[Rfam]
Nucleotides: 077
Base pairs, nucleotide, nucleotide: 004074005073006072007071008070009069010068011067012066013065014064015063016062017061018060019059023055024054025053027051028050029049031047
Number, partner (000 for none) and nucleotide at each position: 001000u002000g003000u004074g005073u006072g007071a008070u009069u010068u011067a012066g013065g014064u015063a016062g017061u018060u019059u020000c021000a022000u023055g024054u025053u026000g027051u028050u029049g030000g031047g032000u033000u034000u035000a036000a037000u038000g039000c040000g041000u042000a043000a044000g045000a046000u047031c048000a049029c050028a051027g052000g053025a054024a055023c056000c057000u058000g059019a060018a061017a062016c063015u064014g065013c066012c067011u068010g069009g070008a071007u072006u073005a074004c075000u076000c077000c
The family of this 77-nucleotide sequence from Acipenser ruthenus is "mir-196 microRNA precursor family".
Pairs were carried over by alignment from the consensus structure, which was predicted with PFOLD.
Taxonomically the source falls in Acipenser (Eukaryota, Deuterostomia, Gnathostomata, Acipenseroidei).
A reference for the family is Lim et al. (2003), "Vertebrate microRNA genes", Science.
A search with the family's covariance model found it, with a score of 70 bits.